[Rfam]
RNA sequence: UUGCAGUGAUGACGAUCUUAGGACACCUUUGGAAUUAAACAUGAAAACAACCCACAAUCUGAGCAAC
Numbered sequence: 001u002u003g004c005a006g007u008g009a010u011g012a013c014g015a016u017c018u019u020a021g022g023a024c025a026c027c028u029u030u031g032g033a034a035u036u037a038a039a040c041a042u043g044a045a046a047a048c049a050a051c052c053c054a055c056a057a058u059c060u061g062a063g064c065a066a067c
Stems, first nucleotide, its partner, number of pairs: 001066004

Overview:
The family of this 67-nucleotide RNA from Clarias magur is "Small nucleolar RNA SNORD58". The literature on the family includes a 2002 paper in Mol Cell Biol by Galardi et al., "Purified box C/D snoRNPs are able to reproduce site-specific 2'-O-methylation of target RNA in vitro". Clan: SNORD58 clan. About the family: snoRNA U58 is found in introns 1, 3 and 6 of the ribosomal protein RPL17 gene in humans. Gene Ontology terms of the family: RNA processing and nucleolus. The base pairs follow the family's consensus structure, which was predicted with PFOLD. It is annotated as a C/D-box small nucleolar RNA.